[Rfam]
RNA: DUF3800-VIII RNA
RNA sequence: AAGGCUCUGUCAACCCGAACGCUCAAGAUUUAUGUUGCUUGGGCCAUUGAGGUAGGGAAGAUGGGGUCUU
Numbered sequence: 001a002a003g004g005c006u007c008u009g010u011c012a013a014c015c016c017g018a019a020c021g022c023u024c025a026a027g028a029u030u031u032a033u034g035u036u037g038c039u040u041g042g043g044c045c046a047u048u049g050a051g052g053u054a055g056g057g058a059a060g061a062u063g064g065g066g067u068c069u070u
Stems, first nucleotide, its partner, number of pairs: 001070011014057003021044007